[Rfam]
RNA sequence: CUGACGAUUCCGCGAACGGACCUCGUCGGCCGGAAGAUCGUCCGAUCGAACCACCACUGUCCGAUCGAACCGCAGGCCGACUUCGACUGCGGACCGACUACGGGAGAGACCGCUGAGCGUCACACU
Numbered sequence: 001c002u003g004a005c006g007a008u009u010c011c012g013c014g015a016a017c018g019g020a021c022c023u024c025g026u027c028g029g030c031c032g033g034a035a036g037a038u039c040g041u042c043c044g045a046u047c048g049a050a051c052c053a054c055c056a057c058u059g060u061c062c063g064a065u066c067g068a069a070c071c072g073c074a075g076g077c078c079g080a081c082u083u084c085g086a087c088u089g090c091g092g093a094c095c096g097a098c099u100a101c102g103g104g105a106g107a108g109a110c111c112g113c114u115g116a117g118c119g120u121c122a123c124a125c126u
Stems, first nucleotide, its partner, number of pairs: 001044001003042006009034002070092005076087001078085002
Notes:
A member of the RNA family "atpB RNA" from Rhodococcus rhodnii, 126 nucleotides long. Taxonomically the source falls in Rhodococcus rhodnii (Bacteria, Actinomycetota, Actinomycetes, Nocardiaceae). By type it is a cis-regulatory element. The base pairs follow the family's consensus structure, which is taken from published work.